[Rfam]
A member of the RNA family "Small nucleolar RNA Z13/snr52" from Monosporascus sp. mg162, 103 nucleotides long. Pairs were carried over by alignment from the consensus structure, which was predicted with PFOLD. Rfam links the family to the GO terms RNA processing and nucleolus. The family has 42 seed sequences and 1,203 matches in Rfam 15.1.

RNA sequence: CCUGAUCAUAUGACGAAACAUGUCGGAUGUAAACCUAAGUUUACUGAAAAGCGCAAACAAUCCUCGUGUUGAUAUUUCCGUUGCCUUCCUUCUGAUUAUCCAA
Numbered sequence: 001c002c003u004g005a006u007c008a009u010a011u012g013a014c015g016a017a018a019c020a021u022g023u024c025g026g027a028u029g030u031a032a033a034c035c036u037a038a039g040u041u042u043a044c045u046g047a048a049a050a051g052c053g054c055a056a057a058c059a060a061u062c063c064u065c066g067u068g069u070u071g072a073u074a075u076u077u078c079c080g081u082u083g084c085c086u087u088c089c090u091u092c093u094g095a096u097u098a099u100c101c102a103a
Stems, first nucleotide, its partner, number of pairs: 003102002024080004